A member of the RNA family "Bacillaceae-1 RNA" from Bacillus licheniformis, 67 nucleotides long. Pairs were carried over by alignment from the consensus structure, which is taken from published work. By type it is a small RNA. Rfam's curators put it in the seed alignment.
Nucleotides: 067
Base pairs, nucleotide, nucleotide: 012048013047014046015045016044017043025039026038027037028036029035053067054066055065056064057063
Number, partner (000 for none) and nucleotide at each position: 001000a002000a003000u004000a005000a006000u007000g008000g009000a010000g011000c012048g013047c014046a015045g016044a017043u018000u019000a020000a021000g022000u023000u024000c025039g026038u027037c028036a029035c030000a031000u032000c033000c034000u035029g036028u037027g038026a039025c040000a041000a042000c043017a044016u045015c046014u047013g048012c049000a050000u051000g052000a053067c054066c055065u056064g057063c058000a059000u060000c061000g062000u063057g064056c065055a066054g067053g